RNA sequence: AGCUUUGCAAAAUGGCAGUAUCAUAGCCAAUGAGGUUUAUCCAAGGCGCGAUUAUUGCUAAUUGAAAACUUUUCCCAAUACCCUGCUGUGACGACUUUCAAUAUAGUCAGAUUGGUGAUUUUUGACAGUCUCUAUGGAGA
Numbered sequence: 001a002g003c004u005u006u007g008c009a010a011a012a013u014g015g016c017a018g019u020a021u022c023a024u025a026g027c028c029a030a031u032g033a034g035g036u037u038u039a040u041c042c043a044a045g046g047c048g049c050g051a052u053u054a055u056u057g058c059u060a061a062u063u064g065a066a067a068a069c070u071u072u073u074c075c076c077a078a079u080a081c082c083c084u085g086c087u088g089u090g091a092c093g094a095c096u097u098u099c100a101a102u103a104u105a106g107u108c109a110g111a112u113u114g115g116u117g118a119u120u121u122u123u124g125a126c127a128g129u130c131u132c133u134a135u136g137g138a139g140a
Stems, first nucleotide, its partner, number of pairs: 020052003024048001026047003034042002085116003093108004098103001129140004

Rfam assigns this 140-nucleotide sequence from Cebus imitator to the family "U4 spliceosomal RNA". Taxonomically the source falls in Cebus (Eukaryota, Teleostomi, Amniota, Euarchontoglires). From the family's description: U4 small nuclear RNA (U4 snRNA) is a component of the major U2-dependent spliceosome. Rfam 15.1 lists 32,178 matches to the family in 2,547 species.